Rfam assigns this 191-nucleotide RNA from Sinocyclocheilus rhinocerous to the family "U2 spliceosomal RNA". Rfam describes the family as follows. U2 is a small nuclear RNA (snRNA) component of the spliceosome (involved in pre-mRNA splicing). Complementary binding between U2 snRNA (in an area lying towards the 5' end but 3' to hairpin I) and the branchpoint sequence (BPS) of the intron results the bulging out of an unpaired adenosine, on the BPS, which initiates a nucleophilic attack at the intronic 5' splice site, thus starting the first of two transesterification reactions that mediate splicing. For this family Rfam cites "The uRNA database" (Zwieb, Nucleic Acids Res, 1997).

[Rfam]
RNA sequence: AUCGUUUCUCGGCCUUUUGGGUAAAAUCAAGUGUAGUAUCUGUUCUCAUCAGUAUGAUAUCUGAUAUGGUCUCUGUUCAGAGACUAUAUAUUAAAUUGGUUUUUGUAGUUAAAAGCUGGGAUAGAGGCUUGCUACGUCGACUCCACACAUUGGUUGGGUAUUGCAGUGUUUCCAGGAACGGUGCAUACCUU
Numbered sequence: 001a002u003c004g005u006u007u008c009u010c011g012g013c014c015u016u017u018u019g020g021g022u023a024a025a026a027u028c029a030a031g032u033g034u035a036g037u038a039u040c041u042g043u044u045c046u047c048a049u050c051a052g053u054a055u056g057a058u059a060u061c062u063g064a065u066a067u068g069g070u071c072u073c074u075g076u077u078c079a080g081a082g083a084c085u086a087u088a089u090a091u092u093a094a095a096u097u098g099g100u101u102u103u104u105g106u107a108g109u110u111a112a113a114a115g116c117u118g119g120g121a122u123a124g125a126g127g128c129u130u131g132c133u134a135c136g137u138c139g140a141c142u143c144c145a146c147a148c149a150u151u152g153g154u155u156g157g158g159u160a161u162u163g164c165a166g167u168g169u170u171u172c173c174a175g176g177a178a179c180g181g182u183g184c185a186u187a188c189c190u191u
Base pairs, nucleotide, nucleotide: 007026009024011022013020014019048065049064050063051062052061069084070083071082072081073080074079114142115141117139118138119137124135126133127132148183149182150181151180152179154176155175157173158172